Small nucleolar RNA Me28S-Gm1083: an 89-nucleotide RNA sequence from Lucilia cuprina. Its family is annotated with nucleolus and RNA processing in the Gene Ontology. Rfam classes the family as a C/D-box small nucleolar RNA.
[Rfam]
RNA sequence: AUUUAAAUGAUGAGCAAUUAACUUUCGCCCCUAUCUGAAAAAAACUUCUCAUGUUGAAUGCGAAUGAUUGGUCUUACUGAAAAAAUUAA
Dot-bracket structure: ((((.............................................................................))).)...
Background: The literature on the family includes a 2005 paper in RNA by Huang et al., "Genome-wide analyses of two families of snoRNA genes from Drosophila melanogaster, demonstrating the extensive utilization of introns for coding of snoRNAs".